[Rfam]
RNA sequence: UUGCAAGUUUGAGGCCAUAGCAGAAACACACUCAUGGUGCAGCCUGUCAGAUUCCAACAAAUCUGUGAAUUCUGCU
Numbered sequence: 001u002u003g004c005a006a007g008u009u010u011g012a013g014g015c016c017a018u019a020g021c022a023g024a025a026a027c028a029c030a031c032u033c034a035u036g037g038u039g040c041a042g043c044c045u046g047u048c049a050g051a052u053u054c055c056a057a058c059a060a061a062u063c064u065g066u067g068a069a070u071u072c073u074g075c076u
Base pairs, nucleotide, nucleotide: 013044014043015042019076020075021074022073023072024071025070027039028038048065049064050063051062052061053060
A member of the RNA family "Mammalian CPEB3 ribozyme" from Crocodylus porosus, 76 nucleotides long. Pairs were carried over by alignment from the consensus structure, which is taken from published work. NCBI's taxonomy places the organism under Eukaryota, Opisthokonta, Chordata, Euteleostomi, Crocodylus.